[Rfam]
RNA sequence: CCCCGGCUUGAACGUGUCCCCUAUCGGUGGUAGUUUACUGCGUGUGCACGAUGGGGGCCUCGGUCAAGCGGGG
Dot-bracket structure: .(((.((((((.((.(.(((((((((((.................)).))))))))).).)).)))))).)))
RNA: mir-m21-1 microRNA precursor family